Shown here is a 116-nucleotide sequence from Pectinatus brassicae, a member of the family "FMN riboswitch aptamer (RFN element)".
NCBI's taxonomy places the organism under Bacteria, Bacillota, Negativicutes, Selenomonadales, Pectinatus.
RNA sequence: AGCAGUCUUUGGGGCAGGGUGUGAUUCCCUACCGGCGGUAAAGCCCGCGAGCCUUUUUGGCAGAUUCGGUGUAAUUCCGAAGCCGACAGUUAUAGUCUGGAUGGAAAAAGAUUGUG
Numbered sequence: 001a002g003c004a005g006u007c008u009u010u011g012g013g014g015c016a017g018g019g020u021g022u023g024a025u026u027c028c029c030u031a032c033c034g035g036c037g038g039u040a041a042a043g044c045c046c047g048c049g050a051g052c053c054u055u056u057u058u059g060g061c062a063g064a065u066u067c068g069g070u071g072u073a074a075u076u077c078c079g080a081a082g083c084c085g086a087c088a089g090u091u092a093u094a095g096u097c098u099g100g101a102u103g104g105a106a107a108a109a110g111a112u113u114g115u116g
Base pairs, nucleotide, nucleotide: 003114004113005112006111007110008109009108010107017029018028019027031096032095033085034084035048036047037046038045043083044082051061052060053059065081066080067079068078069077087099088098089097

Background:
The base pairs follow the family's consensus structure, which is taken from published work.